The family of this 84-nucleotide sequence is "c-di-GMP-II-GAG riboswitch aptamer". The family's consensus secondary structure is taken from published work. It is one of the family's seed sequences. The literature on the family includes a 2017 paper in Proc Natl Acad Sci U S A by Weinberg et al., "Bioinformatic analysis of riboswitch structures uncovers variant classes with altered ligand specificity". The family is grouped with related families in Rfam's "c-di-GMP_II riboswitch clan".
[Rfam]
RNA sequence: GACGAAGCGGGAGGCUCCGACGCGCGGCCCACACCCCGGCCGCCGGGACCGCGCCGAGCCACUGGCGAGACCGACCCGCGAGUG
Numbered sequence: 001g002a003c004g005a006a007g008c009g010g011g012a013g014g015c016u017c018c019g020a021c022g023c024g025c026g027g028c029c030c031a032c033a034c035c036c037c038g039g040c041c042g043c044c045g046g047g048a049c050c051g052c053g054c055c056g057a058g059c060c061a062c063u064g065g066c067g068a069g070a071c072c073g074a075c076c077c078g079c080g081a082g083u084g
Base pairs, nucleotide, nucleotide: 003084004083007079008078009077010076011075013060014059015058022054023053024052025051026050027049029047038072039071041067042066043065044064